This 123-nucleotide RNA sequence from Gossypium raimondii belongs to the Rfam family "MIR7504 microRNA precursor family".
RNA sequence: AAUGUAAGAAUGACAAAUCAGAUUUUUCUUUUGAUUUUUAGCUUUUUUUCUCUUGAAAAAAAAUUCAAAUCCAACUAAAAUUGUAGAAAAUCAGGAGGAAAUCUGAUUUGUCAUUCUCACAUU
Numbered sequence: 001a002a003u004g005u006a007a008g009a010a011u012g013a014c015a016a017a018u019c020a021g022a023u024u025u026u027u028c029u030u031u032u033g034a035u036u037u038u039u040a041g042c043u044u045u046u047u048u049u050c051u052c053u054u055g056a057a058a059a060a061a062a063a064u065u066c067a068a069a070u071c072c073a074a075c076u077a078a079a080a081u082u083g084u085a086g087a088a089a090a091u092c093a094g095g096a097g098g099a100a101a102u103c104u105g106a107u108u109u110g111u112c113a114u115u116c117u118c119a120c121a122u123u
Stems, first nucleotide, its partner, number of pairs: 001123005007117016025101003028097011041084001045080003
The family's consensus secondary structure was predicted with RNAalifold.